[Rfam]
Nucleotides: 176
Base pairs, nucleotide, nucleotide: 006171007170008169009168010167011166016078017077018076019075020074022072023071024070032063033062034061035060036059037058038057039056082114083113084112085110086109087108088107089106090105091104092103115141116140117139118138119137120136121135122134123133124132125131143161144160145159146158147157148156149155
Number, partner (000 for none) and nucleotide at each position: 001000u002000u003000u004000a005000g006171u007170g008169a009168u010167a011166g012000a013000g014000g015000u016078g017077c018076g019075g020074u021000a022072u023071u024070u025000a026000a027000g028000a029000g030000u031000a032063c033062u034061u035060a036059u037058g038057u039056u040000g041000a042000g043000g044000a045000a046000a047000g048000c049000a050000c051000g052000a053000u054000g055000a056039a057038g058037c059036a060035u061034a062033a063032g064000g065000a066000a067000a068000g069000g070024a071023a072022a073000c074020a075019u076018c077017g078016c079000c080000g081000a082114a083113g084112u085110g086109u087108a088107u089106a090105a091104c092103c093000g094000a095000u096000g097000c098000u099000u100000u101000a102000a103092g104091g105090u106089u107088a108087u109086a110085u111000g112084g113083c114082u115141g116140g117139u118138u119137u120136u121135g122134c123133a124132u125131a126000a127000a128000a129000u130000a131125u132124a133123u134122g135121u136120a137119a138118g139117a140116u141115u142000g143161u144160c145159a146158c147157a148156a149155a150000u151000u152000u153000u154000a155149u156148u157147u158146g159145u160144g161143g162000a163000g164000g165000g166011c167010u168009a169008u170007c171006a172000u173000u174000c175000a176000a

A member of the RNA family "Lysine riboswitch aptamer" from Clostridium novyi, 176 nucleotides long. NCBI's taxonomy places the organism under Bacteria, Bacillota, Eubacteriales, Clostridium, Clostridium novyi. Riboswitches are metabolite binding domains within certain messenger RNAs that serve as precision sensors for their corresponding targets.